[Rfam]
RNA sequence: AUGCACGGAGCCUACCCCGGGCACUUCGGAGGUAUCCGCUGAGGAAGGAAGCCCCAAUGCCCGUGCGACAUUGAUUCGCCGUUCUGUGUUGCAGGUCACGACUCUCUCUCGAGUGACUGAUCUGUGUCAAUGUUACGGCUAUAUUU
Number, nucleotide and partner (000 for none) at each position: 001a000002u000003g066004c065005a064006c063007g062008g061009a000010g060011c059012c000013u000014a000015c000016c000017c000018c000019g054020g053021g052022c051023a000024c048025u047026u045027c044028g000029g000030a000031g000032g000033u000034a000035u000036c000037c000038g000039c000040u000041g000042a000043g000044g027045a026046a000047g025048g024049a000050a000051g022052c021053c020054c019055c000056a000057a000058u000059g011060c010061c008062c007063g006064u005065g004066c003067g000068a000069c000070a000071u000072u000073g000074a000075u000076u000077c000078g139079c138080c137081g136082u135083u000084c000085u000086g000087u129088g128089u000090u126091g125092c124093a123094g122095g121096u116097c115098a114099c000100g000101a000102c000103u000104c000105u000106c000107u000108c000109u000110c000111g000112a000113g000114u098115g097116a096117c000118u000119g000120a000121u095122c094123u093124g092125u091126g090127u000128c088129a087130a000131u000132g000133u000134u000135a082136c081137g080138g079139c078140u000141a000142u000143a000144u000145u000146u000
This 146-nucleotide sequence from Ananas comosus belongs to the Rfam family "small nucleolar RNA snoR134". The family's RNA type in Rfam is H/ACA-box small nucleolar RNA. On this family, see Chen and Wu, Nucleic Acids Res 2009: "Mining small RNA sequencing data: a new approach to identify small nucleolar RNAs in Arabidopsis". The base pairs follow the family's consensus structure, which was predicted with RNAalifold. Its family is annotated with RNA processing and nucleolus in the Gene Ontology. The family has 5 seed sequences and 792 matches in Rfam 15.1.